[Rfam]
Nucleotides: 414
Base pairs, nucleotide, nucleotide: 001410002409003408004407005406006405007404008403009402010401011399012365013364014363015362016361017360018359020046021045022044023043024042025041026040027039028038051397052396053395055394056393057392058391059390060248061247062246063245070299071298073244074243075242076241077240078092079091080090081089082088093107094105095104096103097102108239109238113237114236115233116232117231130179131178132175133174134173135172136171137170138169187205188204189203190202191201192200206228207226208225209224210223211222212221213220214219252322253321254320255319262313263312264311265310266309267308292306293305294304295303296302329348330347331346332345334343335342336341
Number, partner (000 for none) and nucleotide at each position: 001410c002409c003408a004407g005406a006405c007404g008403g009402u010401c011399g012365g013364a014363c015362g016361g017360u018359c019000g020046c021045u022044g023043u024042c025041g026040c027039g028038u029000g030000g031000u032000u033000c034000u035000g036000c037000c038028a039027u040026g041025u042024g043023a044022u045021g046020g047000a048000g049000g050000a051397a052396a053395g054000u055394c056393c057392g058391g059390g060248c061247u062246c063245c064000a065000c066000g067000g068000a069000a070299a071298a072000a073244c074243g075242g076241u077240g078092c079091c080090g081089g082088c083000u084000a085000a086000c087000g088082g089081c090080c091079g092078g093107c094105g095104g096103g097102g098000g099000c100000g101000a102097c103096c104095c105094c106000a107093g108239g109238g110000a111000c112000a113237g114236u115233g116232c117231c118000a119000c120000a121000g122000a123000a124000a125000a126000c127000a128000g129000a130179c131178c132175g133174c134173c135172c136171u137170c138169a139000c140000g141000g142000c143000g144000g145000u146000g147000u148000c149000c150000g151000u152000a153000g154000c155000a156000a157000u158000a159000c160000g161000g162000g163000c164000a165000g166000u167000g168000u169138u170137g171136g172135g173134g174133g175132c176000a177000a178131g179130g180000g181000u182000g183000a184000a185000a186000c187205g188204g189203u190202g191201c192200g193000g194000u195000a196000a197000g198000a199000g200192c201191g202190c203189a204188c205187c206228g207226c208225a209224u210223c211222c212221a213220u214219g215000g216000u217000a218000a219214c220213a221212u222211g223210g224209a225208u226207g227000g228206c229000a230000g231117g232116g233115u234000a235000a236114a237113c238109c239108c240077c241076a242075c243074c244073g245063g246062g247061a248060g249000c250000a251000a252322g253321a254320c255319c256000g257000a258000a259000u260000a261000g262313g263312a264311a265310c266309g267308g268000c269000g270000g271000a272000u273000g274000g275000g276000c277000c278000g279000c280000a281000a282000g283000g284000c285000g286000c287000c288000a289000u290000c291000g292306g293305g294304g295303g296302u297000u298071u299070u300000c301000c302296g303295c304294c305293c306292u307000g308267u309266c310265g311264u312263u313262c314000g315000g316000g317000u318000u319255g320254g321253u322252c323000g324000c325000g326000c327000a328000a329348g330347g331346u332345g333000u334343g335342u336341c337000g338000c339000a340000a341336g342335a343334c344000u345332c346331a347330u348329c349000g350000c351000a352000g353000a354000g355000g356000a357000a358000u359018g360017a361016c362015c363014g364013u365012c366000c367000c368000g369000c370000c371000c372000c373000u374000u375000c376000c377000g378000g379000g380000g381000c382000g383000g384000a385000c386000a387000g388000a389000a390059c391058c392057c393056g394055g395053c396052u397051u398000a399011c400000a401010g402009a403008c404007c405006g406005u407004c408003u409002g410001g411000u412000a413000u414000u
Overview: Bacterial RNase P class A: a 414-nucleotide sequence from Komagataeibacter saccharivorans. About the family: Ribonuclease P (RNase P) is a ubiquitous endoribonuclease, found in archaea, bacteria and eukarya as well as chloroplasts and mitochondria. A search with the family's covariance model found it, with a score of 312 bits. NCBI's taxonomy places the organism under Bacteria, Pseudomonadota, Alphaproteobacteria, Acetobacterales, Komagataeibacter. It is annotated as a ribozyme.